[Rfam]
RNA sequence: AAUUGUGUGAGGAGUGAGAAGAAAGCAAAGUCCUUGGGGUCGAAACACGGCAAGACUCCCAAGGGCUUUUCCAU
Numbered sequence: 001a002a003u004u005g006u007g008u009g010a011g012g013a014g015u016g017a018g019a020a021g022a023a024a025g026c027a028a029a030g031u032c033c034u035u036g037g038g039g040u041c042g043a044a045a046c047a048c049g050g051c052a053a054g055a056c057u058c059c060c061a062a063g064g065g066c067u068u069u070u071c072c073a074u
Stems, first nucleotide, its partner, number of pairs: 027069005034062005039056003
RNA: Cyano-1 RNA
Organism: Microcystis aeruginosa